[Rfam]
Shown here is a 226-nucleotide RNA sequence from Streptosporangium saharense, a member of the family "Actinobacteria sRNA Ms_IGR-5". Rfam classes the family as a small RNA. A search with the family's covariance model found it, with a score of 75 bits.
Nucleotides: 226
Stems, first nucleotide, its partner, number of pairs: 013058006059112004064107002067105002070102001072099003130220013144199002147196003
Number, partner (000 for none) and nucleotide at each position: 001000a002000c003000g004000c005000c006000g007000a008000a009000a010000g011000g012000a013058g014057g015056u016055g017054g018053u019000c020000c021000g022000a023000a024000c025000g026000a027000u028000g029000g030000u031000u032000g033000a034000u035000c036000a037000u038000a039000g040000g041000g042000c043000u044000a045000g046000c047000g048000a049000g050000g051000u052000g053018g054017c055016u056015g057014u058013c059112c060111g061110c062109u063000a064107g065106g066000a067105c068104g069000c070102c071000c072099c073098a074097g075000c076000u077000u078000c079000c080000g081000g082000a083000c084000u085000c086000c087000g088000u089000c090000c091000g092000g093000a094000c095000g096000u097074c098073u099072g100000g101000u102070g103000a104068c105067g106065u107064u108000c109062g110061g111060c112059g113000a114000a115000u116000c117000c118000a119000c120000g121000a122000c123000a124000a125000u126000c127000a128000c129000c130220g131219g132218a133217a134216c135215c136214c137213c138212g139211g140210g141209c142208u143000g144199c145198c146000a147196g148195g149194g150000u151000g152000g153000u154000g155000g156000g157000a158000g159000u160000g161000u162000u163000c164000u165000c166000c167000c168000g169000c170000c171000u172000u173000u174000g175000g176000u177000c178000c179000a180000c181000c182000u183000g184000g185000c186000c187000c188000u189000c190000c191000c192000a193000c194149c195148c196147c197000a198145g199144g200000g201000a202000g203000g204000u205000a206000a207000c208142a209141g210140c211139c212138c213137g214136g215135g216134g217133u218132u219131c220130u221000u222000c223000c224000c225000u226000u